[Rfam]
RNA sequence: ACUACGUCCAGUCUAAUUCUGCAUCAGGUCAUUUGGAUACUGUUGGAGACUCGCUUUUGGACAAGAUCAAUAUUAUGUCUCCUAUUAUCCUUGUGCUUGUGGCAACACCCAGCUCAAUGCACACGAGAAACGUAGAAGAACAACU
Numbered sequence: 001a002c003u004a005c006g007u008c009c010a011g012u013c014u015a016a017u018u019c020u021g022c023a024u025c026a027g028g029u030c031a032u033u034u035g036g037a038u039a040c041u042g043u044u045g046g047a048g049a050c051u052c053g054c055u056u057u058u059g060g061a062c063a064a065g066a067u068c069a070a071u072a073u074u075a076u077g078u079c080u081c082c083u084a085u086u087a088u089c090c091u092u093g094u095g096c097u098u099g100u101g102g103c104a105a106c107a108c109c110c111a112g113c114u115c116a117a118u119g120c121a122c123a124c125g126a127g128a129a130a131c132g133u134a135g136a137a138g139a140a141c142a143a144c145u
Base pairs, nucleotide, nucleotide: 006062007061008060009059010058019048020047022045023044025042026041028038029037030036078139079138080137082135083134084133085132090127091126092125093124094123095122
RNA: Small nucleolar RNA psi28S-1192